Gammaprotebacteria rimP leader: a 101-nucleotide RNA sequence from Candidatus Symbiopectobacterium sp. Dall1.0. The base pairs follow the family's consensus structure, which is taken from published work. By type it is a cis-regulatory leader. Rfam links the family to the GO term regulation of gene expression.

RNA sequence: CGGCAUGUUGCGGUAUAUAGGGUCCAGUUGCAUAACGCCCCGAUAUUUCGGGGUUUUUUGUUAUUUGGCAACAACAUGACUGGGCUUUUAGCCCUUUUUUU
Numbered sequence: 001c002g003g004c005a006u007g008u009u010g011c012g013g014u015a016u017a018u019a020g021g022g023u024c025c026a027g028u029u030g031c032a033u034a035a036c037g038c039c040c041c042g043a044u045a046u047u048u049c050g051g052g053g054u055u056u057u058u059u060g061u062u063a064u065u066u067g068g069c070a071a072c073a074a075c076a077u078g079a080c081u082g083g084g085c086u087u088u089u090a091g092c093c094c095u096u097u098u099u100u101u
Base pairs, nucleotide, nucleotide: 034057035056037054038053039052040051041050042049082094083093084092085091